[Rfam]
RNA sequence: CAUAAGCUAUACAACUGACGGAAGUGGAGUACCACAUGAAGUAUAGCGGACGCGUUCAGCGUCUUAAUGCCGACCGUCUGGGCGCACGGA
Numbered sequence: 001c002a003u004a005a006g007c008u009a010u011a012c013a014a015c016u017g018a019c020g021g022a023a024g025u026g027g028a029g030u031a032c033c034a035c036a037u038g039a040a041g042u043a044u045a046g047c048g049g050a051c052g053c054g055u056u057c058a059g060c061g062u063c064u065u066a067a068u069g070c071c072g073a074c075c076g077u078c079u080g081g082g083c084g085c086a087c088g089g090a
Stems, first nucleotide, its partner, number of pairs: 003050001006047007015038001017078005024035004068084004
RNA: ZMP/ZTP riboswitch aptamer (pfl RNA motif)
Organism: Ruminococcaceae bacterium D16